The record is a 31-nucleotide RNA sequence from Asbolus verrucosus, which matches "Iron response element II" in Rfam. By type it is a cis-regulatory element. The literature on the family includes a 2006 paper in J Biol Chem by Sanchez et al., "Iron regulation and the cell cycle: identification of an iron-responsive element in the 3'-untranslated region of human cell division cycle 14A mRNA by a refined microarray-based screening strategy". Rfam describes the family as follows. IRE, TFRC, SLC40A1, SDHB, SLC11A2, CDC42BPA, ACO2, ALAS2_H.SAPIENS, CDC14A, EPAS1, ALAS2, qoxD, Hao1, NDUFS1, transferrin, Aconitate. The family's consensus secondary structure is taken from published work. The source organism's lineage runs through Eukaryota, Ecdysozoa, Insecta, Coleoptera and Asbolus.

RNA sequence: GCUUCAUCAUUUUCAGUGCAAAAUAUGGUGC
Numbered sequence: 001g002c003u004u005c006a007u008c009a010u011u012u013u014c015a016g017u018g019c020a021a022a023a024u025a026u027g028g029u030g031c
Base pairs, nucleotide, nucleotide: 001031002030004028005027006026007025009024010023011022012021013020014018